[Rfam]
Nucleotides: 084
Base pairs, nucleotide, nucleotide: 002082003081004080005079006078
Number, partner (000 for none) and nucleotide at each position: 001000u002082g003081g004080a005079u006078c007000a008000u009000u010000g011000a012000u013000g014000a015000c016000c017000a018000a019000a020000a021000a022000a023000a024000a025000u026000c027000a028000u029000c030000u031000g032000g033000g034000a035000g036000u037000c038000c039000u040000c041000u042000g043000a044000g045000a046000c047000a048000u049000c050000c051000a052000u053000g054000a055000u056000g057000a058000c059000c060000a061000c062000a063000a064000c065000a066000u067000u068000g069000g070000g071000a072000g073000u074000c075000u076000g077000a078006g079005g080004u081003c082002c083000a084000c

The record is an 84-nucleotide sequence, which matches "Small nucleolar RNA SNORD113/SNORD114 family" in Rfam. Rfam describes the family as follows. The imprinted human domain at 14q32 contains two clusters of tandemly repeated small nucleolar RNAs named 14q(I) and 14q(II) snoRNAs. These two clusters are named SNORD113 and SNORD114 respectively in the HGNC approved gene symbol nomenclature. The snoRNAs found in both clusters are clearly related and are represented here by a single family. These snoRNAs are intron encoded and are processed from the tissue-specific non-coding human MEG8 RNA, which lies downstream of the imprinted genes DLK1 and GTL2. snoRNAs 14q(I) and 14q(II) differ from previously identified C/D box snoRNAs in their expression profiles and lack of complementarity to rRNA and snRNA. Homologues of these snoRNAs are found in the imprinted non-coding mouse transcript Rian, and in the rat non-coding Bsr (brain-specific repetitive) RNA. The family's RNA type in Rfam is C/D-box small nucleolar RNA. It is one of the family's seed sequences. Rfam 15.1 lists 5,721 matches to the family in 142 species.